[Rfam]
RNA sequence: AGCUGCCAAGUGCCUACCCCCACCUCCUCGUGGUGGGUGCCGGGUGCCAGUCCCUCGGGACUGGUAGCUAACGGGGGAGG
Number, nucleotide and partner (000 for none) at each position: 001a000002g000003c000004u000005g000006c000007c000008a000009a000010g000011u000012g000013c080014c079015u078016a000017c076018c075019c074020c073021c000022a034023c033024c032025u000026c000027c000028u000029c000030g000031u000032g024033g023034u022035g000036g000037g000038u000039g000040c000041c000042g000043g000044g000045u066046g065047c064048c063049a062050g061051u060052c059053c058054c000055u000056c000057g000058g053059g052060a051061c050062u049063g048064g047065u046066a045067g000068c000069u000070a000071a000072c000073g020074g019075g018076g017077g000078a015079g014080g013
RNA: drz-agam-1 ribozyme
Organism: Microctonus hyperodae